[Rfam]
RNA sequence: GUCGAGCUUGGUAACUCUUGCUUGUGACCCAAGUGGGGACAACAAGGUGAUGGAACAUGGCUAUGGUUUGUCUAGGUCGGGUUGGUGAUUGCAUCAUGCUGGCUUGCCCAUUCCAAGUUGAGAGUUGAGUCAUGGUGAUUGGGUGAAGGCCCAGAUGUCAUGACUUCUAGACAAGAGGGCAAAGCGUGAGGCUGGCUUCACAGAGCAGCGAACACCUCUGGCUCCUAACAGUGGAAGGAUCACAGGUUGCUGCAAUACCAUCCCACAAUGCCUAGUGAGCCAAGCUACUUGGACUAUCAUUUUU
Numbered sequence: 001g002u003c004g005a006g007c008u009u010g011g012u013a014a015c016u017c018u019u020g021c022u023u024g025u026g027a028c029c030c031a032a033g034u035g036g037g038g039a040c041a042a043c044a045a046g047g048u049g050a051u052g053g054a055a056c057a058u059g060g061c062u063a064u065g066g067u068u069u070g071u072c073u074a075g076g077u078c079g080g081g082u083u084g085g086u087g088a089u090u091g092c093a094u095c096a097u098g099c100u101g102g103c104u105u106g107c108c109c110a111u112u113c114c115a116a117g118u119u120g121a122g123a124g125u126u127g128a129g130u131c132a133u134g135g136u137g138a139u140u141g142g143g144u145g146a147a148g149g150c151c152c153a154g155a156u157g158u159c160a161u162g163a164c165u166u167c168u169a170g171a172c173a174a175g176a177g178g179g180c181a182a183a184g185c186g187u188g189a190g191g192c193u194g195g196c197u198u199c200a201c202a203g204a205g206c207a208g209c210g211a212a213c214a215c216c217u218c219u220g221g222c223u224c225c226u227a228a229c230a231g232u233g234g235a236a237g238g239a240u241c242a243c244a245g246g247u248u249g250c251u252g253c254a255a256u257a258c259c260a261u262c263c264c265a266c267a268a269u270g271c272c273u274a275g276u277g278a279g280c281c282a283a284g285c286u287a288c289u290u291g292g293a294c295u296a297u298c299a300u301u302u303u304u
Stems, first nucleotide, its partner, number of pairs: 001040003004023004010017002028037003044303010056291002059288001062284001064282004069278001072275006079264003083260004089255003100249007108238002111236005117229004122224004127166011139154006174219005185210003192203003

Shown here is a 304-nucleotide sequence from Lupinus albus, a member of the family "Plant signal recognition particle RNA". NCBI's taxonomy places the organism under Eukaryota, eudicotyledons, Gunneridae, Genisteae, Lupinus. Rfam 15.1 lists 4,988 matches to the family in 266 species.